[Rfam]
RNA sequence: CGGCCGCGAACGGGAGAGAGCGGAAAGAGCGAUCCCCGCCGCCGAAGGCGCAAUCCACCCGAAAACGCUCAGGCAAAAGGACCGUUCGUGCAAU
Numbered sequence: 001c002g003g004c005c006g007c008g009a010a011c012g013g014g015a016g017a018g019a020g021c022g023g024a025a026a027g028a029g030c031g032a033u034c035c036c037c038g039c040c041g042c043c044g045a046a047g048g049c050g051c052a053a054u055c056c057a058c059c060c061g062a063a064a065a066c067g068c069u070c071a072g073g074c075a076a077a078a079g080g081a082c083c084g085u086u087c088g089u090g091c092a093a094u
Stems, first nucleotide, its partner, number of pairs: 006089008020039004041074003044070002048068003054062002

Annotation: Glycine riboswitch aptamer: a 94-nucleotide RNA from Propionivibrio dicarboxylicus. A search with the family's covariance model found it, with a score of 71 bits. The organism belongs to Propionivibrio, within Bacteria. The base pairs follow the family's consensus structure.